RNA sequence: GUAGGCUACGGAGAUAUCUACCCCAAAACUCUUUUAGGUAAAAUAGUAGGAGGACUAUGCUGCAUUGCUGGAGUGCUGGUGAUUGCUCUUCCCAUCCCAAUUAUUGUCAAUAAC
Numbered sequence: 001g002u003a004g005g006c007u008a009c010g011g012a013g014a015u016a017u018c019u020a021c022c023c024c025a026a027a028a029c030u031c032u033u034u035u036a037g038g039u040a041a042a043a044u045a046g047u048a049g050g051a052g053g054a055c056u057a058u059g060c061u062g063c064a065u066u067g068c069u070g071g072a073g074u075g076c077u078g079g080u081g082a083u084u085g086c087u088c089u090u091c092c093c094a095u096c097c098c099a100a101u102u103a104u105u106g107u108c109a110a111u112a113a114c
Base pairs, nucleotide, nucleotide: 001114002113004111008107009106010105011104013102014101015100020095037077038076039075040074049063051061

The record is a 114-nucleotide RNA from Galbula dea, which matches "Potassium channel RNA editing signal" in Rfam. Rfam's curators write: This family represents a group of sequences related to the human potassium channel Kv1.1 hairpin element which directs the efficient modification of an adenosine to inosine by an adenosine deaminase acting on RNA (ADAR). Pairs were carried over by alignment from the consensus structure, which is taken from published work.